This 147-nucleotide sequence from Cronobacter sakazakii belongs to the Rfam family "sok antitoxin (CssrC)".
Rfam classes the family as an antitoxin RNA.
A search with the family's covariance model found it, with a score of 72 bits.
The family has 91 seed sequences and 305 matches in Rfam 15.1.
Gene Ontology term of the family: mRNA binding.
Also identified in Shigella as CssrC.
The literature on the family includes a 2007 paper in Mol Microbiol by Kawano et al., "An antisense RNA controls synthesis of an SOS-induced toxin evolved from an antitoxin".
[Rfam]
RNA sequence: GGGUGCUCAGGCUGGCUGGCUUGGGCAUGAUGCAAAGGCUGGUCAGAUGAAUGCCCCCCUAAGUUAAUUCCAUUUAACCUCGGGGGAGGCUGCAAUCAAGACCCAACAGCCUGAUUGUAGCCUCUUCCCUAUAAGGAGGCAAUUAUG
Numbered sequence: 001g002g003g004u005g006c007u008c009a010g011g012c013u014g015g016c017u018g019g020c021u022u023g024g025g026c027a028u029g030a031u032g033c034a035a036a037g038g039c040u041g042g043u044c045a046g047a048u049g050a051a052u053g054c055c056c057c058c059c060u061a062a063g064u065u066a067a068u069u070c071c072a073u074u075u076a077a078c079c080u081c082g083g084g085g086g087a088g089g090c091u092g093c094a095a096u097c098a099a100g101a102c103c104c105a106a107c108a109g110c111c112u113g114a115u116u117g118u119a120g121c122c123u124c125u126u127c128c129c130u131a132u133a134a135g136g137a138g139g140c141a142a143u144u145a146u147g
Base pairs, nucleotide, nucleotide: 001057002056003055005054006053007051010048012046013045014044015043016042017041018040019039020038021037022036025033026032058085059084060083062080063078064077065076066075067074086124087123088122089121090120092118093117094116095115096114097113098112100110132147133146